[Rfam]
RNA: T-box leader
Organism: Thermincola carboxydiphila
RNA sequence: GAAAAUGCGUUGAACGGGAAAAGUACCUUAAAAAGUUGCCUUACAGGGACAAAAGGCCGGAGACUGGAAGCCUUUUGAAGGCAAUUUUAAGGGAAGUUCACCCGGGAGCAGCCGCCUGAAAUUUACAGUAGGGUGAGCCGGCGACUUCAACCGUUAUCUUGAAGCAGGUAUCAGCAGUUAAAUUUUGCUUGUACCUGGUAGAGUGAGUAACCUUGUUGGAUACUAAAUAGGGUGGUACCGCGGAAUAUAACUUUCGUCCCUUGU
Numbered sequence: 001g002a003a004a005a006u007g008c009g010u011u012g013a014a015c016g017g018g019a020a021a022a023g024u025a026c027c028u029u030a031a032a033a034a035g036u037u038g039c040c041u042u043a044c045a046g047g048g049a050c051a052a053a054a055g056g057c058c059g060g061a062g063a064c065u066g067g068a069a070g071c072c073u074u075u076u077g078a079a080g081g082c083a084a085u086u087u088u089a090a091g092g093g094a095a096g097u098u099c100a101c102c103c104g105g106g107a108g109c110a111g112c113c114g115c116c117u118g119a120a121a122u123u124u125a126c127a128g129u130a131g132g133g134u135g136a137g138c139c140g141g142c143g144a145c146u147u148c149a150a151c152c153g154u155u156a157u158c159u160u161g162a163a164g165c166a167g168g169u170a171u172c173a174g175c176a177g178u179u180a181a182a183u184u185u186u187g188c189u190u191g192u193a194c195c196u197g198g199u200a201g202a203g204u205g206a207g208u209a210a211c212c213u214u215g216u217u218g219g220a221u222a223c224u225a226a227a228u229a230g231g232g233u234g235g236u237a238c239c240g241c242g243g244a245a246u247a248u249a250a251c252u253u254u255c256g257u258c259c260c261u262u263g264u
Base pairs, nucleotide, nucleotide: 007109008108015104016103017102018101026092027091028090029089030088031087039081040080041079050077051076052075053074054073055072056071057070112137113135114134115133116132117131139153140152141151206224207223208222209221211219212218229261230260231259232258240257241256242255243254244253